[Rfam]
RNA sequence: CAGAGCUGCCCCUAGGGUUCCGGCGCCGCGAACGGCGUGUCUGGUCCGAGAGGGGCAGCCCGGCGCGGGGGAUUCCCCACCACAUUCUCCGGGUCCACGGCGGGACAAAAGCCCGGGAGGC
Numbered sequence: 001c002a003g004a005g006c007u008g009c010c011c012c013u014a015g016g017g018u019u020c021c022g023g024c025g026c027c028g029c030g031a032a033c034g035g036c037g038u039g040u041c042u043g044g045u046c047c048g049a050g051a052g053g054g055g056c057a058g059c060c061c062g063g064c065g066c067g068g069g070g071g072a073u074u075c076c077c078c079a080c081c082a083c084a085u086u087c088u089c090c091g092g093g094u095c096c097a098c099g100g101c102g103g104g105a106c107a108a109a110a111g112c113c114c115g116g117g118a119g120g121c
Stems, first nucleotide, its partner, number of pairs: 007057006015047002020044002022041001023038006058094006065087001096116001098119001102114003
Dot-bracket structure: ......((((((..((...(((((((((....))))))..).)).))....))))))((((((.(.....................).)))))).(.[...(((.......))).)..]..